[Rfam]
RNA sequence: GGGCAGGAUGUGUGAAGUAGUCCUACCGUAAACACUGUUGGCCUAUUUCACUGGUUCUUAUUCGCGUAUUCCGCUCAAUGAGUUUCCUGUUCUGCGAAGCG
Numbered sequence: 001g002g003g004c005a006g007g008a009u010g011u012g013u014g015a016a017g018u019a020g021u022c023c024u025a026c027c028g029u030a031a032a033c034a035c036u037g038u039u040g041g042c043c044u045a046u047u048u049c050a051c052u053g054g055u056u057c058u059u060a061u062u063c064g065c066g067u068a069u070u071c072c073g074c075u076c077a078a079u080g081a082g083u084u085u086c087c088u089g090u091u092c093u094g095c096g097a098a099g100c101g
Stems, first nucleotide, its partner, number of pairs: 001092008012051006019044002025038002028035002054083004064074003
This 101-nucleotide RNA from Spartinivicinus marinus belongs to the Rfam family "traJ-II RNA".
Rfam classes the family as a cis-regulatory element.